[Rfam]
RNA: TPP riboswitch aptamer (THI element)
Organism: Teichococcus oryzae
RNA sequence: GCCCAUCCGUGGGGGAGCCCUUUGCUUGGGCUGAGAGGCAGGGAUGGGCCCUGCGACCCCUUGAACCUGAUCCGGGUCAUGCCGGCGAAGGGAUCGGUGGUUUCGCAUGG
Numbered sequence: 001g002c003c004c005a006u007c008c009g010u011g012g013g014g015g016a017g018c019c020c021u022u023u024g025c026u027u028g029g030g031c032u033g034a035g036a037g038g039c040a041g042g043g044a045u046g047g048g049c050c051c052u053g054c055g056a057c058c059c060c061u062u063g064a065a066c067c068u069g070a071u072c073c074g075g076g077u078c079a080u081g082c083c084g085g086c087g088a089a090g091g092g093a094u095c096g097g098u099g100g101u102u103u104c105g106c107a108u109g110g
Stems, first nucleotide, its partner, number of pairs: 007097003011060004017031004038054005066091003072085004